[Rfam]
Nucleotides: 146
Base pairs, nucleotide, nucleotide: 006134007133008132009131011095012094013093014092016089017082018081019080020079021078101126102125103124104123107120108119109118110117
Number, partner (000 for none) and nucleotide at each position: 001000g002000c003000a004000a005000g006134g007133c008132a009131c010000c011095a012094g013093g014092g015000g016089u017082g018081c019080u020079u021078g022000c023000c024000c025000u026000g027000u028000c029000u030000c031000u032000c033000u034000c035000u036000u037000u038000c039000a040000a041000g042000u043000a044000a045000g046000c047000c048000a049000u050000g051000g052000c053000c054000a055000u056000g057000g058000c059000u060000g061000a062000g063000a064000g065000g066000u067000u068000a069000u070000g071000a072000c073000a074000g075000g076000a077000g078021c079020a080019g081018g082017c083000u084000g085000a086000g087000a088000g089016a090000g091000u092014c093013c094012c095011u096000u097000u098000g099000a100000a101126c102125c103124u104123g105000a106000a107120c108119a109118g110117g111000a112000u113000a114000a115000c116000a117110c118109c119108u120107g121000c122000g123104u124103a125102g126101g127000g128000a129000g130000u131009g132008u133007g134006c135000c136000g137000c138000u139000c140000a141000u142000c143000c144000u145000u146000u